[Rfam]
Description: This 172-nucleotide sequence from Burkholderia sp. Leaf177 belongs to the Rfam family "Group II catalytic intron D1-D4-3". Group II introns are found in rRNA, tRNA and mRNA of organelles in fungi, plants and protists, and also in mRNA in bacteria.
RNA sequence: GUGAGGGUGACCGAGCGUGGGGAGGAAGCGUGGAGCGAAGCCGCGAGCCGAUGGACAAGAACCGGAUAGAAGGCGGUGCCGAUCAGGGCGAGCAGGCACGAAACUGCGAAGCUCUCGUGGUCAAGGAUCAGGUGCUGUAGAUCCGGCGGUUGUGCGGUGAAGGAUUGCGUUC
Numbered sequence: 001g002u003g004a005g006g007g008u009g010a011c012c013g014a015g016c017g018u019g020g021g022g023a024g025g026a027a028g029c030g031u032g033g034a035g036c037g038a039a040g041c042c043g044c045g046a047g048c049c050g051a052u053g054g055a056c057a058a059g060a061a062c063c064g065g066a067u068a069g070a071a072g073g074c075g076g077u078g079c080c081g082a083u084c085a086g087g088g089c090g091a092g093c094a095g096g097c098a099c100g101a102a103a104c105u106g107c108g109a110a111g112c113u114c115u116c117g118u119g120g121u122c123a124a125g126g127a128u129c130a131g132g133u134g135c136u137g138u139a140g141a142u143c144c145g146g147c148g149g150u151u152g153u154g155c156g157g158u159g160a161a162g163g164a165u166u167g168c169g170u171u172c
Base pairs, nucleotide, nucleotide: 001016002015005012006011028172030170031169032168036163040158041157042156043155044154045153046151047150048149049148050147062146063145064144065143066142067141073138074137075136077134079131081129082128083127084126086114087113088112089111092107093106094105095104